[Rfam]
RNA: Streptomyces RNA 2736
RNA sequence: CACCCGGCCGGAUCCCGUGGGGGGAAUCCGCUCCGGGGAUAUGGAAAGCGCCCCGCGCGCCGAC
Numbered sequence: 001c002a003c004c005c006g007g008c009c010g011g012a013u014c015c016c017g018u019g020g021g022g023g024g025a026a027u028c029c030g031c032u033c034c035g036g037g038g039a040u041a042u043g044g045a046a047a048g049c050g051c052c053c054c055g056c057g058c059g060c061c062g063a064c
Base pairs, nucleotide, nucleotide: 001062003037004036005035006034007033009030010029011028012027013026014024015023016022043052044051